[Rfam]
RNA sequence: CUUGAGGGAGCCGAGCCACAGCGGCUGGUCCUCGUCCUUGGCCUUGCCGUAGGUGGCGAGCAGCGCCUGCGCCUC
Numbered sequence: 001c002u003u004g005a006g007g008g009a010g011c012c013g014a015g016c017c018a019c020a021g022c023g024g025c026u027g028g029u030c031c032u033c034g035u036c037c038u039u040g041g042c043c044u045u046g047c048c049g050u051a052g053g054u055g056g057c058g059a060g061c062a063g064c065g066c067c068u069g070c071g072c073c074u075c
Stems, first nucleotide, its partner, number of pairs: 014026004031071001033069001038065001043060003047056003
Dot-bracket structure: .............((((.....))))....(.(....(....(((.(((....))).)))....)...).)....
Rfam assigns this 75-nucleotide RNA sequence from Streptomyces sp. Z26 to the family "ASpks TB sRNA". Pairs were carried over by alignment from the consensus structure, which is taken from published work. A search with the family's covariance model found it, with a score of 76 bits. By type it is an antisense RNA.